[Rfam]
Notes:
The family of this 62-nucleotide RNA is "DUF3800-IX RNA". Rfam describes the family as follows. Actinobacteria, Firmicutes (1 example), Nitrospirae, Proteobacteria, Verrucomicrobia (1 example).

RNA sequence: GGCCCCGGCUCGAACCGGCACCGUAUGGUGCGUUUUCCGAAAGGAUAGAGUCGGGGCAUUCU
Numbered sequence: 001g002g003c004c005c006c007g008g009c010u011c012g013a014a015c016c017g018g019c020a021c022c023g024u025a026u027g028g029u030g031c032g033u034u035u036u037c038c039g040a041a042a043g044g045a046u047a048g049a050g051u052c053g054g055g056g057c058a059u060u061c062u
Stems, first nucleotide, its partner, number of pairs: 002057010018031005036045003